[Rfam]
Nucleotides: 045
Stems, first nucleotide, its partner, number of pairs: 001019003005015004032044005
Number, partner (000 for none) and nucleotide at each position: 001019u002018c003017c004000a005015g006014g007013g008012c009000g010000c011000u012008g013007c014006c015005c016000c017003g018002g019001g020000c021000u022000u023000u024000a025000a026000u027000a028000u029000u030000c031000c032044g033043c034042c035041c036040c037000u038000u039000c040036g041035g042034g043033g044032c045000u